[Rfam]
RNA sequence: AGACCACCCUUCGGGGUCGAGGCCAUACGGACAGCCGGGUCAAAUGCCGA
Numbered sequence: 001a002g003a004c005c006a007c008c009c010u011u012c013g014g015g016g017u018c019g020a021g022g023c024c025a026u027a028c029g030g031a032c033a034g035c036c037g038g039g040u041c042a043a044a045u046g047c048c049g050a
Base pairs, nucleotide, nucleotide: 002041003040004039005038006017007016008015009014